A member of the RNA family "uup RNA", 48 nucleotides long. The family's RNA type in Rfam is cis-regulatory element.

RNA sequence: GACGAAACAGCUCCGUACAAAUCAAGUUGAUGAAGCAUUGUGCGGAGC
Dot-bracket structure: ..........(((((.(((...................))).))))).
Numbered sequence: 001g002a003c004g005a006a007a008c009a010g011c012u013c014c015g016u017a018c019a020a021a022u023c024a025a026g027u028u029g030a031u032g033a034a035g036c037a038u039u040g041u042g043c044g045g046a047g048c
Stems, first nucleotide, its partner, number of pairs: 011047005017041003